[Rfam]
RNA sequence: GUUGGAUCCAUGAUGUAGAAUGUAAACUGCGUUAUCUUCCUGAGAAGGGCAUAAUAAAAUGUCUUUCUUAGAUGAAAAAUCAGCAUACUGAGAUCCAAA
Numbered sequence: 001g002u003u004g005g006a007u008c009c010a011u012g013a014u015g016u017a018g019a020a021u022g023u024a025a026a027c028u029g030c031g032u033u034a035u036c037u038u039c040c041u042g043a044g045a046a047g048g049g050c051a052u053a054a055u056a057a058a059a060u061g062u063c064u065u066u067c068u069u070a071g072a073u074g075a076a077a078a079a080u081c082a083g084c085a086u087a088c089u090g091a092g093a094u095c096c097a098a099a
Stems, first nucleotide, its partner, number of pairs: 002098006
The record is a 99-nucleotide RNA sequence from Carex littledalei, which matches "Small nucleolar RNA snoR27" in Rfam. The organism belongs to Carex subgen. Euthyceras, within Eukaryota. The base pairs follow the family's consensus structure, which was predicted with WAR. It is annotated as a C/D-box small nucleolar RNA.